[Rfam]
RNA sequence: CUGUCUCUUGCCUCAACAGUGCUUGGACAGAGCUG
Numbered sequence: 001c002u003g004u005c006u007c008u009u010g011c012c013u014c015a016a017c018a019g020u021g022c023u024u025g026g027a028c029a030g031a032g033c034u035g
Stems, first nucleotide, its partner, number of pairs: 001035001003033002006031003010028001013026004017021001
RNA: Iron response element I
Organism: Myotis brandtii